[Rfam]
This 63-nucleotide sequence from Eoetvoesiella caeni belongs to the Rfam family "Fluoride riboswitch aptamer (crcB RNA motif)". A search with the family's covariance model found it, with a score of 43 bits. The literature on the family includes a 2012 paper in Nature by Ren et al., "Fluoride ion encapsulation by Mg2+ ions and phosphates in a fluoride riboswitch". Lineage of the source: Bacteria > Pseudomonadati > Betaproteobacteria > Alcaligenaceae > Eoetvoesiella.
RNA sequence: GCAGCACCCGGAGAUGACAUCCUCCUGAACCGCCACAGUCUGGCUGAUGAUGUCUGGCACUAC
Numbered sequence: 001g002c003a004g005c006a007c008c009c010g011g012a013g014a015u016g017a018c019a020u021c022c023u024c025c026u027g028a029a030c031c032g033c034c035a036c037a038g039u040c041u042g043g044c045u046g047a048u049g050a051u052g053u054c055u056g057g058c059a060c061u062a063c
Base pairs, nucleotide, nucleotide: 010025011024012023013022016054017053018052019051020050021049032044033043034042035041